RNA sequence: UCCCGGCUUUCCAACGGCCGGGGUACUAAAGAGGCACAUACCAUCAUUGCCGGAAGUGCGGUCGGGAUACCCCUCCAAUCCAAGGCAGACAAAGCCGGAUAAGCCGCAAGGCUUGUUCAAUCUUGAGCGGUCGCCGCAAACGGUCCCCGGGGUC
Numbered sequence: 001u002c003c004c005g006g007c008u009u010u011c012c013a014a015c016g017g018c019c020g021g022g023g024u025a026c027u028a029a030a031g032a033g034g035c036a037c038a039u040a041c042c043a044u045c046a047u048u049g050c051c052g053g054a055a056g057u058g059c060g061g062u063c064g065g066g067a068u069a070c071c072c073c074u075c076c077a078a079u080c081c082a083a084g085g086c087a088g089a090c091a092a093a094g095c096c097g098g099a100u101a102a103g104c105c106g107c108a109a110g111g112c113u114u115g116u117u118c119a120a121u122c123u124u125g126a127g128c129g130g131u132c133g134c135c136g137c138a139a140a141c142g143g144u145c146c147c148c149g150g151g152g153u154c
Stems, first nucleotide, its partner, number of pairs: 001023008033051004084096002104152002107149001